[Rfam]
RNA sequence: GGGCAGUCGCCGCUGAAUCGCAAGAACCGGGGAACCGAGUUCCCGGGGUGAAUCCGCCGUCGAGGCGGUAGGGCAGCUCCCGCCCGAACCCGUCAGCUAACCCGGUAAGCGGCCUAGUGGGAGUGA
Numbered sequence: 001g002g003g004c005a006g007u008c009g010c011c012g013c014u015g016a017a018u019c020g021c022a023a024g025a026a027c028c029g030g031g032g033a034a035c036c037g038a039g040u041u042c043c044c045g046g047g048g049u050g051a052a053u054c055c056g057c058c059g060u061c062g063a064g065g066c067g068g069u070a071g072g073g074c075a076g077c078u079c080c081c082g083c084c085c086g087a088a089c090c091c092g093u094c095a096g097c098u099a100a101c102c103c104g105g106u107a108a109g110c111g112g113c114c115u116a117g118u119g120g121g122a123g124u125g126a
Base pairs, nucleotide, nucleotide: 011111012110013109014108018025019024026106027105028104029103030102031101036045037044046091047090048089054068055067056066057065071085072084073083074082

A member of the RNA family "c-di-AMP riboswitch aptamer (ydaO/yuaA leader)" from Cryptosporangium phraense, 126 nucleotides long. Pairs were carried over by alignment from the consensus structure.